[Rfam]
RNA sequence: UCUCCAAGCCAAACUACUACUCUUUUUAUCUCUCUAUAUUUAAGGUCUAUCCUUAUCAUCUAUUCAUCAUGGGUCCCUGCUCCUGCAACUGCUGCUCCGGUGACUGCAACUCUUGCUCUUGCGCUAGCUGCAAGGUAUGUUCCUCCUUUCU
Numbered sequence: 001u002c003u004c005c006a007a008g009c010c011a012a013a014c015u016a017c018u019a020c021u022c023u024u025u026u027u028a029u030c031u032c033u034c035u036a037u038a039u040u041u042a043a044g045g046u047c048u049a050u051c052c053u054u055a056u057c058a059u060c061u062a063u064u065c066a067u068c069a070u071g072g073g074u075c076c077c078u079g080c081u082c083c084u085g086c087a088a089c090u091g092c093u094g095c096u097c098c099g100g101u102g103a104c105u106g107c108a109a110c111u112c113u114u115g116c117u118c119u120u121g122c123g124c125u126a127g128c129u130g131c132a133a134g135g136u137a138u139g140u141u142c143c144u145c146c147u148u149u150c151u
Base pairs, nucleotide, nucleotide: 078102079101080100081099085095086094087093106131107130108129115122116121
This 151-nucleotide sequence from Penicillium antarcticum belongs to the Rfam family "A. fumigatus sRNA Afu_254". A reference for the family is Jochl et al. (2008), "Small ncRNA transcriptome analysis from Aspergillus fumigatus suggests a novel mechanism for regulation of protein synthesis", Nucleic Acids Res. The family's RNA type in Rfam is small RNA. The match comes from Rfam's covariance-model search (70 bits). Rfam 15.1 lists 185 matches to the family in 142 species.